[Rfam]
RNA sequence: GCCGGGCCUUGUAACGUUGGCUUGUAACCCAAGUGGGGGCACUAAAUUGGAUGGAUAUUGGCCCGAACCAACUGGCUGGGCUUUGCGGUGCUUAUUCUGGCCUGCCCGUUCCAAGCUGGGAGUUGGGCUACGGGGCUUGUGCGAAGGCAUGGGCUUCUUGGCCCGUAGAGUGGAGGGCACUGCGUUAGGCUGGUUUCACAGAGCAACGACCACUUCCCGCUUUCAGCGGUGGAAGGAUAACAGGCCGGUGUGUCGCUUGCCCGUUAAAGUCAGAUGUGUUGGUCCAAUUAAACCCUAAA
Numbered sequence: 001g002c003c004g005g006g007c008c009u010u011g012u013a014a015c016g017u018u019g020g021c022u023u024g025u026a027a028c029c030c031a032a033g034u035g036g037g038g039g040c041a042c043u044a045a046a047u048u049g050g051a052u053g054g055a056u057a058u059u060g061g062c063c064c065g066a067a068c069c070a071a072c073u074g075g076c077u078g079g080g081c082u083u084u085g086c087g088g089u090g091c092u093u094a095u096u097c098u099g100g101c102c103u104g105c106c107c108g109u110u111c112c113a114a115g116c117u118g119g120g121a122g123u124u125g126g127g128c129u130a131c132g133g134g135g136c137u138u139g140u141g142c143g144a145a146g147g148c149a150u151g152g153g154c155u156u157c158u159u160g161g162c163c164c165g166u167a168g169a170g171u172g173g174a175g176g177g178c179a180c181u182g183c184g185u186u187a188g189g190c191u192g193g194u195u196u197c198a199c200a201g202a203g204c205a206a207c208g209a210c211c212a213c214u215u216c217c218c219g220c221u222u223u224c225a226g227c228g229g230u231g232g233a234a235g236g237a238u239a240a241c242a243g244g245c246c247g248g249u250g251u252g253u254c255g256c257u258u259g260c261c262c263g264u265u266a267a268a269g270u271c272a273g274a275u276g277u278g279u280u281g282g283u284c285c286a287a288u289u290a291a292a293c294c295c296u297a298a299a
Stems, first nucleotide, its partner, number of pairs: 001040003004023005028037003047299002050296001053293001056290002058287003061283003065279001069276002072273006078262004085256002088254001090253002097248008106236002109234005115227009125164006132157011172217005183208003190201003
Record summary
The record is a 299-nucleotide sequence from Salvia splendens, which matches "Plant signal recognition particle RNA" in Rfam. The family's consensus secondary structure is taken from published work. The family is grouped with related families in Rfam's "SRP clan". It scores 224 bits against the family's covariance model. Rfam classes the family as a non-coding RNA gene. On this family, see Batey et al., Science 2000: "Crystal structure of the ribonucleoprotein core of the signal recognition particle".